[Rfam]
RNA: mir-8/mir-141/mir-200 microRNA precursor family
Organism: Muraenolepis orangiensis
RNA sequence: GGACCCAUCUUACCUGCCAGUGUCUGAUCGUAUGACUCGUCUUCUAACACUGUCUGGUAACGAUGUUUCC
Numbered sequence: 001g002g003a004c005c006c007a008u009c010u011u012a013c014c015u016g017c018c019a020g021u022g023u024c025u026g027a028u029c030g031u032a033u034g035a036c037u038c039g040u041c042u043u044c045u046a047a048c049a050c051u052g053u054c055u056g057g058u059a060a061c062g063a064u065g066u067u068u069c070c
Stems, first nucleotide, its partner, number of pairs: 002069002006065004010060005016054001018052006026044002